[Rfam]
Annotation
The record is a 198-nucleotide sequence from Miscanthus lutarioriparius, which matches "MIR6217 microRNA precursor family" in Rfam.
RNA sequence: UAUUACAUAGCCACUUUGAGUUACGAUAAUUACUAUAUUAAUUUACGAAAUUAUAGUAACUCCUUGCUAAGUGAUUUACUAUAACGUUAUGGUAAAUAUCCCCAUGUGUUAUAGUAAUCCAACUAUCGUAAAUAUGUAUUAAUAUUAUAAGUAAUUUAGUAUAUAAAAUUAUAAAUAAAUGGAGGUGGCUAUAGAAUA
Dot-bracket structure: ((((..(((((((((((...(((..((((((..((((((((.((((...((.(((..(.....((((...(((.(((((((((((((...((.......))....)))))))))))....)).))).)))).......)...))).))..)))).))))))))...))))))...)))...)))))))))))..))))
Numbered sequence: 001u002a003u004u005a006c007a008u009a010g011c012c013a014c015u016u017u018g019a020g021u022u023a024c025g026a027u028a029a030u031u032a033c034u035a036u037a038u039u040a041a042u043u044u045a046c047g048a049a050a051u052u053a054u055a056g057u058a059a060c061u062c063c064u065u066g067c068u069a070a071g072u073g074a075u076u077u078a079c080u081a082u083a084a085c086g087u088u089a090u091g092g093u094a095a096a097u098a099u100c101c102c103c104a105u106g107u108g109u110u111a112u113a114g115u116a117a118u119c120c121a122a123c124u125a126u127c128g129u130a131a132a133u134a135u136g137u138a139u140u141a142a143u144a145u146u147a148u149a150a151g152u153a154a155u156u157u158a159g160u161a162u163a164u165a166a167a168a169u170u171a172u173a174a175a176u177a178a179a180u181g182g183a184g185g186u187g188g189c190u191a192u193a194g195a196a197u198a
Stems, first nucleotide, its partner, number of pairs: 001198004007192011021178003026172006034163008043154004050148002053145003058139001064131004071126003075122002077116011091101002
Overview
Taxonomically the source falls in Miscanthus (Eukaryota, Streptophyta, Panicoideae, Saccharinae). The family has 2 seed sequences and 2,266 matches in Rfam 15.1.